Rfam assigns this 103-nucleotide RNA sequence from Gossypium laxum to the family "Small nucleolar RNA Z279/snoR105/snoR108". The literature on the family includes a 2002 paper in Curr Biol by Marker et al., "Experimental RNomics: identification of 140 candidates for small non-messenger RNAs in the plant Arabidopsis thaliana". Taxonomically the source falls in Gossypium (Eukaryota, Embryophyta, Spermatophyta, Gunneridae). By type it is a C/D-box small nucleolar RNA. The family has 20 seed sequences and 906 matches in Rfam 15.1. Rfam's curators write: This family includes the plant snoRNAs known as Z279, snoR105 and snoR108.
RNA sequence: GGGGUAUGAUGAGUGGUUAAUUCUCACAAUCGUUGUGGGAUGAGUGUCCGCCCCAAAGCCUGGUUACGACACUCGGGCACUCUCCUUUUUACCACCUGAUCCC
Numbered sequence: 001g002g003g004g005u006a007u008g009a010u011g012a013g014u015g016g017u018u019a020a021u022u023c024u025c026a027c028a029a030u031c032g033u034u035g036u037g038g039g040a041u042g043a044g045u046g047u048c049c050g051c052c053c054c055a056a057a058g059c060c061u062g063g064u065u066a067c068g069a070c071a072c073u074c075g076g077g078c079a080c081u082c083u084c085c086u087u088u089u090u091a092c093c094a095c096c097u098g099a100u101c102c103c
Base pairs, nucleotide, nucleotide: 001103002102003101004100014094015093016092017091023039024038025037026036027035042082043081044080045079046078047077048076061075062074063073
Pairs were carried over by alignment from the consensus structure, which was predicted with PFOLD.